Description:
The family of this 154-nucleotide RNA sequence from Saccharimonas aalborgensis is "lysM-TM7 RNA". The source organism's lineage runs through Bacteria, Bacteria candidate phyla, Candidatus Saccharimonadota, Saccharimonadaceae (SeqCode) and Saccharimonas (SeqCode). The base pairs follow the family's consensus structure, which is taken from published work. It is annotated as a cis-regulatory element.
[Rfam]
RNA sequence: GCUUACCUUUAAAUGUCGAACGGCCGCCGAAAUAAGCAAAGAUUUUACUAAUAUCAAUUGAUAACAUCGGUCGACACGCGCGCGCCAGUCCUCCCUUGCGAGAGGAGAAAGACAGAGUGGGGUAGACGUGAUUCCAGCAAUGGUUUCACAGGAG
Number, nucleotide and partner (000 for none) at each position: 001g000002c000003u125004u124005a123006c122007c121008u120009u119010u000011a000012a000013a000014u114015g113016u112017c111018g000019a000020a000021c000022g086023g085024c084025c082026g081027c080028c000029g000030a000031a000032a000033u000034a000035a000036g000037c000038a000039a000040a000041g000042a000043u000044u000045u000046u000047a000048c000049u000050a000051a000052u000053a000054u000055c000056a000057a000058u000059u000060g000061a000062u000063a000064a000065c000066a000067u000068c000069g000070g000071u000072c000073g000074a000075c000076a000077c000078g000079c000080g027081c026082g025083c000084g024085c023086c022087a000088g000089u106090c105091c104092u103093c000094c000095c000096u000097u000098g000099c000100g000101a000102g000103a092104g091105g090106a089107g000108a000109a000110a000111g017112a016113c015114a014115g000116a000117g000118u000119g009120g008121g007122g006123u005124a004125g003126a000127c000128g149129u148130g147131a000132u000133u000134c143135c142136a141137g000138c000139a000140a000141u136142g135143g134144u000145u000146u000147c130148a129149c128150a000151g000152g000153a000154g000